[Rfam]
RNA sequence: CGGCAGGAUGUGUGUUGUACCGGUACGGGCAAGCCCGCACCAGUCCAACACCGCCCCUUACUCACCUACGGUUCGACGGCAUCCUGCUCUGCGAGGCU
Numbered sequence: 001c002g003g004c005a006g007g008a009u010g011u012g013u014g015u016u017g018u019a020c021c022g023g024u025a026c027g028g029g030c031a032a033g034c035c036c037g038c039a040c041c042a043g044u045c046c047a048a049c050a051c052c053g054c055c056c057c058u059u060a061c062u063c064a065c066c067u068a069c070g071g072u073u074c075g076a077c078g079g080c081a082u083c084c085u086g087c088u089c090u091g092c093g094a095g096g097c098u
Stems, first nucleotide, its partner, number of pairs: 002088008012051006019044002023040002026037002029034001056079002064072003
Source information:
The record is a 98-nucleotide sequence from Escherichia coli, which matches "traJ-II RNA" in Rfam. Rfam's curators put it in the seed alignment. It is annotated as a cis-regulatory element. The source organism's lineage runs through Bacteria, Pseudomonadota, Enterobacteriaceae, Escherichia and Escherichia coli. The family has 47 seed sequences and 174 matches in Rfam 15.1. The family's consensus secondary structure is taken from published work.